A member of the RNA family "mir-48 microRNA precursor family" from Caenorhabditis remanei, 83 nucleotides long. Rfam 15.1 lists 7 matches to the family in 6 species. NCBI's taxonomy places the organism under Eukaryota, Metazoa, Ecdysozoa, Rhabditidae, Caenorhabditis. On this family, see Lau et al., Science 2001: "An abundant class of tiny RNAs with probable regulatory roles in Caenorhabditis elegans". Rfam links the family to the GO terms RISC complex and miRNA-mediated post-transcriptional gene silencing.
RNA sequence: CGGAUGUUGAGGUAGGCUCAGUAGAUGCGAUCAGAGUUGUGCCUCAGGCGUUCCUCACAUCUUCUUGCCUAACUCGCCUUCCU
Dot-bracket structure: .(((...((((.(((((..((..((((.((........................)).))))..)).))))).))))...))).